The record is a 178-nucleotide RNA from Streptomyces xinghaiensis, which matches "Streptomyces sRNA scr5239" in Rfam. A search with the family's covariance model found it, with a score of 101 bits. Pairs were carried over by alignment from the consensus structure, which is taken from published work.

RNA sequence: CUUCUGCCCUCCCCGCACAGGAGGGCGGAUACGAGACCCGGGACGCUCUCUGCCCUGACCGCGUCCGGGUCUCCGGUCGGCCGGAAACGGCCCCGGGGGUCCGCACACCCCGGGAAACCACCGGCCGGUACAGCUCCGGGCUGCGGUGCCGGACAGGUUGAGGGUCCUGUCCCGGCGC
Numbered sequence: 001c002u003u004c005u006g007c008c009c010u011c012c013c014c015g016c017a018c019a020g021g022a023g024g025g026c027g028g029a030u031a032c033g034a035g036a037c038c039c040g041g042g043a044c045g046c047u048c049u050c051u052g053c054c055c056u057g058a059c060c061g062c063g064u065c066c067g068g069g070u071c072u073c074c075g076g077u078c079g080g081c082c083g084g085a086a087a088c089g090g091c092c093c094c095g096g097g098g099g100u101c102c103g104c105a106c107a108c109c110c111c112g113g114g115a116a117a118c119c120a121c122c123g124g125c126c127g128g129u130a131c132a133g134c135u136c137c138g139g140g141c142u143g144c145g146g147u148g149c150c151g152g153a154c155a156g157g158u159u160g161a162g163g164g165u166c167c168u169g170u171c172c173c174g175g176c177g178c
Base pairs, nucleotide, nucleotide: 003029004028005027006026008024009023010022011021012020033073034072035071036070037069039067040066041065043064045062046061047058048057078127079126080125081124082123083122084121133147134146135145137143138142151172152171153170154169155168156167157166
It is annotated as a small RNA. Taxonomically the source falls in Streptomyces (Bacteria, Bacillati, Kitasatosporales, Streptomycetaceae). For this family Rfam cites "Identification of metE as a second target of the sRNA scr5239 in Streptomyces coelicolor" (Vockenhuber et al., PLoS One, 2015).